[Rfam]
RNA sequence: AUGCGAUGAGUCGAUUUGGUCGUAAAGACCAUAUUGCGCUGGGGAGGUCAUAACGCAGGAGCGGACCUUGAUGACUUGUGUGAACCUUUUCAUCUCAUGGAGACAUGCCCCUAAACCUUCUUUCUUUUGAGAGGAGGUUUUUU
Numbered sequence: 001a002u003g004c005g006a007u008g009a010g011u012c013g014a015u016u017u018g019g020u021c022g023u024a025a026a027g028a029c030c031a032u033a034u035u036g037c038g039c040u041g042g043g044g045a046g047g048u049c050a051u052a053a054c055g056c057a058g059g060a061g062c063g064g065a066c067c068u069u070g071a072u073g074a075c076u077u078g079u080g081u082g083a084a085c086c087u088u089u090u091c092a093u094c095u096c097a098u099g100g101a102g103a104c105a106u107g108c109c110c111c112u113a114a115a116c117c118u119u120c121u122u123u124c125u126u127u128u129g130a131g132a133g134g135a136g137g138u139u140u141u142u143u
Base pairs, nucleotide, nucleotide: 012036013035014034015033017031018030019029020028021027041111042110043109044108045068046067047066048065054063055062056061070094071093072092073091074090096107097106098105099104115138116137117136118135119134120133121132122131123130

Shown here is a 143-nucleotide sequence from Streptococcus minor, a member of the family "MarS sRNA".
For this family Rfam cites "The Regulatory Small RNA MarS Supports Virulence of Streptococcus pyogenes" (Pappesch et al., Sci Rep, 2017).
The family's consensus secondary structure is taken from published work.
Rfam classes the family as a small RNA.
Interacts with the 5'UTR of the mga transcript (the multiple virulence gene regulator gene) and was renamed MarS for mag-activating regulatory sRNA. In MarS deletion strains expression of mga and several Mga-activated genes is reduced. This down-regulation of virulence factors leads to increased susceptibility of the deletion strain to phagocytosis, reduced adherence to human keratinocytes. However, the lack of MarS increased bacterial dissemination and tolerance towards oxidative stress.